RNA sequence: GAUGGCUGUGACGACUCAGUAAUAUUCAAGCUCAACAGACCAAAUCACAUGUUUAUCUCAAAAUUGAGAUUAAUCUGUAUGCCGAUUAUCCCGCUGAACUGAGCCAUC
Numbered sequence: 001g002a003u004g005g006c007u008g009u010g011a012c013g014a015c016u017c018a019g020u021a022a023u024a025u026u027c028a029a030g031c032u033c034a035a036c037a038g039a040c041c042a043a044a045u046c047a048c049a050u051g052u053u054u055a056u057c058u059c060a061a062a063a064u065u066g067a068g069a070u071u072a073a074u075c076u077g078u079a080u081g082c083c084g085a086u087u088a089u090c091c092c093g094c095u096g097a098a099c100u101g102a103g104c105c106a107u108c
Stems, first nucleotide, its partner, number of pairs: 001108006
Overview
The record is a 108-nucleotide sequence from Setaria viridis, which matches "Small nucleolar RNA Z107/R87" in Rfam. The family's RNA type in Rfam is C/D-box small nucleolar RNA. The literature on the family includes a 2003 paper in Nucleic Acids Res by Chen et al., "The high diversity of snoRNAs in plants: identification and comparative study of 120 snoRNA genes from Oryza sativa". Pairs were carried over by alignment from the consensus structure, which was predicted with RNAfold. NCBI's taxonomy places the organism under Eukaryota, Streptophyta, Embryophyta, Euphyllophyta, Setaria.